Rfam assigns this 76-nucleotide RNA sequence from Flavobacterium sp. KMS to the family "Flavo-1 RNA". A search with the family's covariance model found it, with a score of 68 bits. The family's RNA type in Rfam is small RNA. The base pairs follow the family's consensus structure, which is taken from published work. The organism belongs to Flavobacterium, within Bacteria.
[Rfam]
Nucleotides: 076
Base pairs, nucleotide, nucleotide: 009068010067011066013064014063018059019058023054024053025052029049030048031047032046033045034044035043036042
Number, partner (000 for none) and nucleotide at each position: 001000a002000u003000u004000u005000a006000g007000c008000c009068c010067c011066g012000a013064u014063a015000g016000a017000a018059a019058c020000g021000a022000u023054a024053u025052c026000c027000u028000g029049u030048u031047g032046u033045g034044g035043c036042g037000u038000u039000u040000u041000u042036u043035g044034c045033c046032a047031c048030a049029a050000u051000a052025g053024a054023u055000a056000u057000a058019g059018u060000g061000g062000a063014u064013a065000g066011c067010g068009g069000g070000a071000c072000a073000a074000a075000a076000g